Shown here is a 50-nucleotide RNA, a member of the family "L31-Actinobacteria ribosomal protein leader". A reference for the family is Eckert and Weinberg (2020), "Discovery of 20 novel ribosomal leader candidates in bacteria and archaea", BMC Microbiol.
[Rfam]
RNA sequence: GCGGUACCGGUUCACGCCGGGGCGGAGUCCCGCCCGGCGACCCGGCGACC
Numbered sequence: 001g002c003g004g005u006a007c008c009g010g011u012u013c014a015c016g017c018c019g020g021g022g023c024g025g026a027g028u029c030c031c032g033c034c035c036g037g038c039g040a041c042c043c044g045g046c047g048a049c050c
Stems, first nucleotide, its partner, number of pairs: 003050003007045004015039007023032003
It is annotated as a cis-regulatory leader.